[Rfam]
This 60-nucleotide sequence from Lepisosteus oculatus belongs to the Rfam family "mir-724 microRNA precursor family". A search with the family's covariance model found it, with a score of 84 bits.
RNA sequence: UUAAAGGGAAUUUGCGACUGUUGGUAAAACCAUUAGGACAGCCACACCUUCCUUUUAAGA
Numbered sequence: 001u002u003a004a005a006g007g008g009a010a011u012u013u014g015c016g017a018c019u020g021u022u023g024g025u026a027a028a029a030c031c032a033u034u035a036g037g038a039c040a041g042c043c044a045c046a047c048c049u050u051c052c053u054u055u056u057a058a059g060a
Base pairs, nucleotide, nucleotide: 001058002057003056004055005054006053007052008051009050010049013046014045016043018041019040020039021038022037